[Rfam]
RNA sequence: GUUACAUUGAUGAGAACAGAAACAUAAACUAUGACCUAGGGGUUUCUGUUGGAUAGCUCGUAAU
Numbered sequence: 001g002u003u004a005c006a007u008u009g010a011u012g013a014g015a016a017c018a019g020a021a022a023c024a025u026a027a028a029c030u031a032u033g034a035c036c037u038a039g040g041g042g043u044u045u046c047u048g049u050u051g052g053a054u055a056g057c058u059c060g061u062a063a064u
Stems, first nucleotide, its partner, number of pairs: 001064005015050009029039003

Selenocysteine insertion sequence 1: a 64-nucleotide sequence. The incorporation of selenocysteine into a protein sequence is directed by an in-frame UGA codon (usually a stop codon) within the coding region of the mRNA. Selenoprotein mRNAs contain a conserved secondary structure in the 3' UTR that is required for the distinction of UGA stop from UGA selenocysteine. The family has 61 seed sequences and 3,793 matches in Rfam 15.1. Gene Ontology term of the family: selenocysteine incorporation.